Rfam assigns this 61-nucleotide sequence from Glaciimonas immobilis to the family "Betaproteobacteria toxic small RNA". On this family, see Kimelman et al., Genome Res 2012: "A vast collection of microbial genes that are toxic to bacteria". Overexpression in amino aid rich medium attenuates growth, suggesting role in repressing amino acid intake and metabolism. The family's consensus secondary structure was predicted with WAR.
Nucleotides: 061
Stems, first nucleotide, its partner, number of pairs: 008028005014022002032054008
Number, partner (000 for none) and nucleotide at each position: 001000c002000g003000u004000c005000u006000c007000c008028u009027c010026c011025a012024c013000u014022u015021c016000c017000c018000c019000u020000u021015g022014a023000u024012g025011u026010g027009g028008a029000u030000u031000a032054a033053g034052c035051c036050c037049g038048a039047a040000a041000u042000a043000a044000a045000u046000a047039u048038u049037u050036g051035g052034g053033c054032u055000u056000u057000u058000u059000u060000u061000u